[Rfam]
RNA sequence: AAAGCACGAAAGAGGGAAGGGUGAGGAGCCUCGUGGUUCGAGCCGAGCGAAGCGAGACAACGUUGGAGCGUGCGACGACGGCCCGAAGGGCAUAGUAAUCCCUCCCUCACCGCCA
Numbered sequence: 001a002a003a004g005c006a007c008g009a010a011a012g013a014g015g016g017a018a019g020g021g022u023g024a025g026g027a028g029c030c031u032c033g034u035g036g037u038u039c040g041a042g043c044c045g046a047g048c049g050a051a052g053c054g055a056g057a058c059a060a061c062g063u064u065g066g067a068g069c070g071u072g073c074g075a076c077g078a079c080g081g082c083c084c085g086a087a088g089g090g091c092a093u094a095g096u097a098a099u100c101c102c103u104c105c106c107u108c109a110c111c112g113c114c115a
Stems, first nucleotide, its partner, number of pairs: 014106004019101002022098001032089001037087004044054002061080005
The record is a 115-nucleotide RNA from Litoribrevibacter albus, which matches "RtT RNA" in Rfam. Its family is annotated with cellular response to amino acid starvation in the Gene Ontology. On this family, see Bosl and Kersten, Nucleic Acids Res 1991: "A novel RNA product of the tyrT operon of Escherichia coli". From the family's description: This family represents a bacterial cis-regulatory element known as RtT RNA. The exact function of RtT is unknown although it is thought that it may be involved in changing the cellular response in relation to amino acid starvation. Rfam 15.1 lists 651 matches to the family in 204 species. The family's consensus secondary structure is taken from published work. The family's RNA type in Rfam is cis-regulatory element.